[Rfam]
RNA: c-di-AMP riboswitch aptamer (ydaO/yuaA leader)
Organism: Alkaliphilus peptidifermentans
RNA sequence: CUUUAUUCACAGCUGAAUCUCAUAUUAUAUGAGUACGGAGGAACCAUCUAAGGGGUUAAUCCAUGUAUAUGGUAGGGAGCCUUCUAUCCCGAACCCGUCAGCUAACUUCGGAAGCAUAAAGGAAGGAGUG
Numbered sequence: 001c002u003u004u005a006u007u008c009a010c011a012g013c014u015g016a017a018u019c020u021c022a023u024a025u026u027a028u029a030u031g032a033g034u035a036c037g038g039a040g041g042a043a044c045c046a047u048c049u050a051a052g053g054g055g056u057u058a059a060u061c062c063a064u065g066u067a068u069a070u071g072g073u074a075g076g077g078a079g080c081c082u083u084c085u086a087u088c089c090c091g092a093a094c095c096c097g098u099c100a101g102c103u104a105a106c107u108u109c110g111g112a113a114g115c116a117u118a119a120a121g122g123a124a125g126g127a128g129u130g
Stems, first nucleotide, its partner, number of pairs: 012115003019033004036110005045052001053096003061072004075090004